[Rfam]
This 137-nucleotide RNA sequence from Leptonychotes weddellii belongs to the Rfam family "U4 spliceosomal RNA". U4 small nuclear RNA (U4 snRNA) is a component of the major U2-dependent spliceosome. Taxonomically the source falls in Leptonychotes (Eukaryota, Sarcopterygii, Dipnotetrapodomorpha, Tetrapoda). A search with the family's covariance model found it, with a score of 80 bits. Rfam links the family to the GO terms spliceosomal tri-snRNP complex assembly and U4 snRNP. Clan: U4 clan.
RNA sequence: AGCUUUGUGCAGUGGCGGUAUUGUAGCCAAUGAGGUUUAUCCGAGGCGCGAUUAUUGCUAAUUAAAAAAUAAAUUCUAAGUCCUAUUAAAUAGGCUGUGAAGAACUCAUGAAAGCAUUUCUGAAAGAGAAACAUUCC
Numbered sequence: 001a002g003c004u005u006u007g008u009g010c011a012g013u014g015g016c017g018g019u020a021u022u023g024u025a026g027c028c029a030a031u032g033a034g035g036u037u038u039a040u041c042c043g044a045g046g047c048g049c050g051a052u053u054a055u056u057g058c059u060a061a062u063u064a065a066a067a068a069a070u071a072a073a074u075u076c077u078a079a080g081u082c083c084u085a086u087u088a089a090a091u092a093g094g095c096u097g098u099g100a101a102g103a104a105c106u107c108a109u110g111a112a113a114g115c116a117u118u119u120c121u122g123a124a125a126g127a128g129a130a131a132c133a134u135u136c137c
Stems, first nucleotide, its partner, number of pairs: 020052005026047003034042002084114001086112002089109001092106002095102002128137001130135001